The family of this 52-nucleotide sequence from Paraglaciecola hydrolytica is "L31-Gammaproteobacteria ribosomal protein leader".
RNA sequence: CGUAUGGUGUUCAACUUCGGGUUGGAUGGCGAUACGGCCUUAACUAAGAGGU
Numbered sequence: 001c002g003u004a005u006g007g008u009g010u011u012c013a014a015c016u017u018c019g020g021g022u023u024g025g026a027u028g029g030c031g032a033u034a035c036g037g038c039c040u041u042a043a044c045u046a047a048g049a050g051g052u
Base pairs, nucleotide, nucleotide: 001036002035003034004033005032007030008029011025012024013023014022015021

Pairs were carried over by alignment from the consensus structure, which is taken from published work. For this family Rfam cites "Discovery of 20 novel ribosomal leader candidates in bacteria and archaea" (Eckert and Weinberg, BMC Microbiol, 2020). The family's RNA type in Rfam is cis-regulatory leader.